Shown here is a 162-nucleotide RNA sequence from Pipistrellus kuhlii, a member of the family "U1 spliceosomal RNA".
The family's consensus secondary structure is taken from published work.
Rfam links the family to the GO terms mRNA 5'-splice site recognition, U1 snRNP and pre-mRNA 5'-splice site binding.
The source organism's lineage runs through Eukaryota, Vertebrata, Teleostomi, Euteleostomi and Pipistrellus.
A search with the family's covariance model found it, with a score of 134 bits.
[Rfam]
RNA sequence: GUACUUACCUGGCAGGGGAGAACCAUGAUCACGAAGGUGGUUUUCCCAGGGCGAGGCUUAUCCAUUGCAACCCGAUGUGCUGGCCCCUGCGAUUUCCCCAAAUGUGGGAAAGUCGACUGCAUAAUUUGUGGCAGUGGGGGACUGCAUUCGCACUCUUCCCUA
Numbered sequence: 001g002u003a004c005u006u007a008c009c010u011g012g013c014a015g016g017g018g019a020g021a022a023c024c025a026u027g028a029u030c031a032c033g034a035a036g037g038u039g040g041u042u043u044u045c046c047c048a049g050g051g052c053g054a055g056g057c058u059u060a061u062c063c064a065u066u067g068c069a070a071c072c073c074g075a076u077g078u079g080c081u082g083g084c085c086c087c088u089g090c091g092a093u094u095u096c097c098c099c100a101a102a103u104g105u106g107g108g109a110a111a112g113u114c115g116a117c118u119g120c121a122u123a124a125u126u127u128g129u130g131g132c133a134g135u136g137g138g139g140g141a142c143u144g145c146a147u148u149c150g151c152a153c154u155c156u157u158c159c160c161u162a
Base pairs, nucleotide, nucleotide: 012120013119014118015117016047017046018045019044020043021042022041023040024039025038026037048088049087050086051085053084055081056080057079059077060076061075063074090115091114092113093111094110095109097107098106136161137160138159139158140157141156144153